[Rfam]
RNA sequence: GGGCCAAUGAUGUGAACGAUGCUCCUACAGUCAUAAUAGACCUAUGGGGAAGAUUUCUUAAUCACAUUUCCCAAGAGCUGAGGCCA
Numbered sequence: 001g002g003g004c005c006a007a008u009g010a011u012g013u014g015a016a017c018g019a020u021g022c023u024c025c026u027a028c029a030g031u032c033a034u035a036a037u038a039g040a041c042c043u044a045u046g047g048g049g050a051a052g053a054u055u056u057c058u059u060a061a062u063c064a065c066a067u068u069u070c071c072c073a074a075g076a077g078c079u080g081a082g083g084c085c086a
Stems, first nucleotide, its partner, number of pairs: 002085004
RNA: Small nucleolar RNA Z168/Z174
Organism: Zizania palustris